Rfam assigns this 358-nucleotide RNA sequence from Neisseria shayeganii to the family "Bacterial RNase P class A". A search with the family's covariance model found it, with a score of 294 bits.
RNA sequence: GCAGUCGGGCAGACAGUCGCCGCGUGAUCCGCUCACGGGGAGGAAAGUCCGGGCUGCACAGAGCAGGAUGCCGGCUAACGGCCGGGCGCCGCGAGGCGACGGAAAGUGGAACAGAAAGCAUAACCGCCGAUGGCUGCGGCAACGCGGUACAGGUAAGGGUGAAAUGGUGCGGUAAGAGCGCACCGUGCGGCUGGCAACAGUCCGUAGCAGGCCAAACCCCAUCCGCAGCAAGACCAAACAGAACACCAUGACGCUGCUCGCCGAGUGUUCGGGUAGGUUGCUUGAGCCGUCCGGCAACGGGCGGCCUAGAGGAAUGACUGUCCAACGACAGAACCCGGCUUACCGCCCGGCUGCGGUG
Numbered sequence: 001g002c003a004g005u006c007g008g009g010c011a012g013a014c015a016g017u018c019g020c021c022g023c024g025u026g027a028u029c030c031g032c033u034c035a036c037g038g039g040g041a042g043g044a045a046a047g048u049c050c051g052g053g054c055u056g057c058a059c060a061g062a063g064c065a066g067g068a069u070g071c072c073g074g075c076u077a078a079c080g081g082c083c084g085g086g087c088g089c090c091g092c093g094a095g096g097c098g099a100c101g102g103a104a105a106g107u108g109g110a111a112c113a114g115a116a117a118g119c120a121u122a123a124c125c126g127c128c129g130a131u132g133g134c135u136g137c138g139g140c141a142a143c144g145c146g147g148u149a150c151a152g153g154u155a156a157g158g159g160u161g162a163a164a165u166g167g168u169g170c171g172g173u174a175a176g177a178g179c180g181c182a183c184c185g186u187g188c189g190g191c192u193g194g195c196a197a198c199a200g201u202c203c204g205u206a207g208c209a210g211g212c213c214a215a216a217c218c219c220c221a222u223c224c225g226c227a228g229c230a231a232g233a234c235c236a237a238a239c240a241g242a243a244c245a246c247c248a249u250g251a252c253g254c255u256g257c258u259c260g261c262c263g264a265g266u267g268u269u270c271g272g273g274u275a276g277g278u279u280g281c282u283u284g285a286g287c288c289g290u291c292c293g294g295c296a297a298c299g300g301g302c303g304g305c306c307u308a309g310a311g312g313a314a315u316g317a318c319u320g321u322c323c324a325a326c327g328a329c330a331g332a333a334c335c336c337g338g339c340u341u342a343c344c345g346c347c348c349g350g351c352u353g354c355g356g357u358g
Stems, first nucleotide, its partner, number of pairs: 001354010012322007020040002023037005045341003049338005054228004061259004066224005071085005086100001087098004101219002106217002108213002124158002126154003131149002134146001166184006185208001186206005191200003232279004241270006253261002286305008